TPP riboswitch aptamer (THI element): a 113-nucleotide RNA sequence from Nonomuraea longispora.

[Rfam]
RNA sequence: AAAUCGAUCCGCGGGAGCUUGAGGCAAUCAGGCUGAGAGGGCGACUACGGCUGUCGCCGACCGCAUGAACCUGUCCGGGUAAUGCCGGCGUAGGGAGUGUGCGAUGUCGCAUG
Number, nucleotide and partner (000 for none) at each position: 001a000002a000003a000004u000005c000006g000007a100008u099009c000010c097011g064012c063013g062014g061015g000016a000017g033018c032019u031020u030021g029022a000023g000024g000025c000026a000027a000028u000029c021030a020031g019032g018033c017034u000035g000036a000037g000038a000039g000040g058041g057042c056043g055044a054045c000046u000047a000048c000049g000050g000051c000052u000053g000054u044055c043056g042057c041058c040059g000060a000061c014062c013063g012064c011065a000066u000067g000068a000069a000070c094071c093072u092073g091074u000075c088076c087077g086078g085079g000080u000081a000082a000083u000084g000085c078086c077087g076088g075089c000090g000091u073092a072093g071094g070095g000096a000097g010098u000099g008100u007101g000102c000103g000104a000105u000106g000107u000108c000109g000110c000111a000112u000113g000
Pairs were carried over by alignment from the consensus structure, which is taken from published work.